[Rfam]
Nucleotides: 153
Base pairs, nucleotide, nucleotide: 004106007103008102009101010100011099012098015095016094017141018140019139020138021137056091057090058089059088130148132146133145134144
Number, partner (000 for none) and nucleotide at each position: 001000a002000a003000g004106g005000g006000c007103g008102u009101a010100c011099g012098c013000g014000a015095c016094u017141g018140g019139c020138g021137a022000u023000a024000g025000g026000c027000g028000c029000g030000g031000c032000u033000u034000c035000c036000a037000g038000c039000a040000g041000g042000g043000u044000g045000c046000c047000g048000c049000c050000g051000c052000u053000g054000a055000c056091g057090u058089g059088g060000a061000a062000a063000c064000c065000g066000g067000c068000a069000a070000g071000g072000g073000c074000a075000u076000g077000c078000c079000u080000c081000u082000u083000g084000u085000g086000a087000a088059c089058c090057a091056c092000u093000a094016g095015g096000g097000a098012g099011c100010g101009u102008g103007c104000c105000g106004u107000a108000g109000a110000g111000g112000u113000u114000c115000a116000a117000g118000a119000c120000c121000u122000u123000u124000u125000g126000c127000g128000u129000u130148c131000c132146g133145c134144c135000g136000u137021u138020c139019g140018c141017c142000u143000g144134g145133g146132c147000a148130g149000c150000c151000c152000u153000u

A member of the RNA family "ZMP/ZTP riboswitch aptamer (pfl RNA motif)" from Acidovorax carolinensis, 153 nucleotides long. The family's consensus secondary structure is taken from published work. It scores 41 bits against the family's covariance model. On this family, see Trausch et al., Chem Biol 2015: "Metal Ion-Mediated Nucleobase Recognition by the ZTP Riboswitch".